The family of this 99-nucleotide RNA from Mannheimia varigena is "Aggregatibacter sRNA 22". The family's consensus secondary structure was predicted with RNAfold. The source organism's lineage runs through Bacteria, Pasteurellales, Pasteurellaceae, Mannheimia and Mannheimia varigena. A reference for the family is Oogai et al. (2017), "Small RNA repertoires and their intraspecies variation in Aggregatibacter actinomycetemcomitans", DNA Res.

RNA sequence: AAGCGUUCACAAAAAGCAUUGCUUUUUGAACGUUGGCUUUGCCAACGGCUGCGAAGCAGUGAACAAUCCUUACGAGGAUUGUGAAUAAUUUUCAUUGAA
Numbered sequence: 001a002a003g004c005g006u007u008c009a010c011a012a013a014a015a016g017c018a019u020u021g022c023u024u025u026u027u028g029a030a031c032g033u034u035g036g037c038u039u040u041g042c043c044a045a046c047g048g049c050u051g052c053g054a055a056g057c058a059g060u061g062a063a064c065a066a067u068c069c070u071u072a073c074g075a076g077g078a079u080u081g082u083g084a085a086u087a088a089u090u091u092u093c094a095u096u097g098a099a
Stems, first nucleotide, its partner, number of pairs: 010028008031047007048060005063082008085096001